Shown here is a 103-nucleotide RNA sequence from Paenibacillus silvestris, a member of the family "Guanidine-I riboswitch aptamer".
[Rfam]
RNA sequence: UACAAAGUUUUCUAGGGUUCCGCGAUGGCUCAAGCCACGGUCUGGUCCAAGAGAAAACGCACAGCUCACCCUGUGUUCACGGAGGGACAAAAGCCCGGGAGGA
Number, nucleotide and partner (000 for none) at each position: 001u000002a000003c000004a000005a000006a000007g058008u057009u056010u055011u054012c053013u000014a000015g048016g047017g000018u000019u000020c045021c044022g042023c039024g038025a000026u037027g036028g035029c034030u000031c000032a000033a000034g029035c028036c027037a026038c024039g023040g000041u000042c022043u000044g021045g020046u000047c016048c015049a000050a000051g000052a000053g012054a011055a010056a009057a008058c007059g076060c075061a074062c073063a072064g071065c000066u000067c000068a000069c000070c000071c064072u063073g062074u061075g060076u059077u000078c098079a000080c101081g000082g000083a000084g096085g095086g094087a000088c000089a000090a000091a000092a000093g000094c086095c085096c084097g000098g078099g000100a000101g080102g000103a000